[Rfam]
RNA sequence: GCGUAUUAGUGAUAGUAGCGGCAUCCUUUUAUGUGGUAACUUUUAAAAAAGUUACCACAUAAAAGAUAUAGCGAAUAGCACGACCCGCA
Numbered sequence: 001g002c003g004u005a006u007u008a009g010u011g012a013u014a015g016u017a018g019c020g021g022c023a024u025c026c027u028u029u030u031a032u033g034u035g036g037u038a039a040c041u042u043u044u045a046a047a048a049a050a051g052u053u054a055c056c057a058c059a060u061a062a063a064a065g066a067u068a069u070a071g072c073g074a075a076u077a078g079c080a081c082g083a084c085c086c087g088c089a
Stems, first nucleotide, its partner, number of pairs: 009081003013077002018072002023067003029062015
Shown here is an 89-nucleotide RNA sequence from Tenacibaculum todarodis, a member of the family "Flavo-1 RNA". It is annotated as a small RNA. NCBI's taxonomy places the organism under Bacteria, Flavobacteriia, Flavobacteriales, Flavobacteriaceae, Tenacibaculum.